[Rfam]
RNA sequence: CGUCUGAAGCGGGGGUACCGCGCCGGUAUGGCGAGGUUGAGACAGUCCCUUCGAACCUGAUCCGGCUCAUACCGGCGUAGGGAAGCUUUGCAGGAUGCACC
Numbered sequence: 001c002g003u004c005u006g007a008a009g010c011g012g013g014g015g016u017a018c019c020g021c022g023c024c025g026g027u028a029u030g031g032c033g034a035g036g037u038u039g040a041g042a043c044a045g046u047c048c049c050u051u052c053g054a055a056c057c058u059g060a061u062c063c064g065g066c067u068c069a070u071a072c073c074g075g076c077g078u079a080g081g082g083a084a085g086c087u088u089u090g091c092a093g094g095a096u097g098c099a100c101c
Stems, first nucleotide, its partner, number of pairs: 006089005011050004016044001017037003021033004056081004062075004
Rfam assigns this 101-nucleotide sequence from Luteimonas granuli to the family "TPP riboswitch aptamer (THI element)". A search with the family's covariance model found it, with a score of 62 bits.